RNA: MIR2655 microRNA precursor family
RNA sequence: CCCAUAAGUAAUAAAAAGUCUGUCUAGGUCCCUUAACUUUAUUUAAAGUAUCAGUUUGGUCCUUUCUGUUAAUUUAAUUCAAUAAAACGUUAAUUUUAAGGACCAAACUAAUACUAAUUAAAUAAGCUAAGGGACUAAAAUAAUACUAAUUAAAUAAGUUAUGUGAUCAAAAUUUAACGUUUUUUUAAAUUAAAUUAACAGAAAGGACCAAACUGAUAUUUAAAUAAACUUAAGGGACCUAAACGGACUUUUUAUUACAUGAGA
Number, nucleotide and partner (000 for none) at each position: 001c000002c000003c261004a260005u259006a000007a000008g258009u000010a000011a000012u000013a000014a000015a000016a000017a000018g000019u000020c000021u000022g000023u243024c000025u241026a000027g239028g238029u237030c000031c235032c234033u233034u232035a231036a230037c000038u228039u227040u226041a225042u224043u223044u000045a221046a220047a219048g000049u000050a000051u000052c000053a000054g000055u000056u000057u000058g000059g000060u000061c000062c000063u000064u000065u000066c000067u000068g000069u000070u000071a000072a000073u000074u000075u000076a000077a000078u000079u000080c000081a000082a000083u000084a000085a000086a000087a000088c000089g000090u000091u000092a000093a000094u000095u000096u000097u000098a000099a000100g000101g000102a000103c000104c000105a000106a000107a000108c000109u000110a000111a000112u000113a000114c000115u000116a000117a000118u000119u000120a000121a000122a000123u000124a000125a000126g000127c000128u000129a000130a000131g000132g000133g000134a000135c000136u000137a000138a000139a000140a000141u000142a000143a000144u000145a000146c000147u000148a000149a000150u000151u000152a000153a000154a000155u000156a000157a000158g000159u000160u000161a000162u000163g000164u000165g000166a000167u000168c000169a000170a000171a000172a000173u000174u000175u000176a000177a000178c000179g000180u000181u000182u000183u000184u000185u000186u000187a000188a000189a000190u000191u000192a000193a000194a000195u000196u000197a000198a000199c000200a000201g000202a000203a000204a000205g000206g000207a000208c000209c000210a000211a000212a000213c000214u000215g000216a000217u000218a000219u047220u046221u045222a000223a043224a042225u041226a040227a039228a038229c000230u036231u035232a034233a033234g032235g031236g000237a029238c028239c027240u000241a025242a000243a023244c000245g000246g000247a000248c000249u000250u000251u000252u000253u000254a000255u000256u000257a000258c008259a005260u004261g003262a000263g000264a000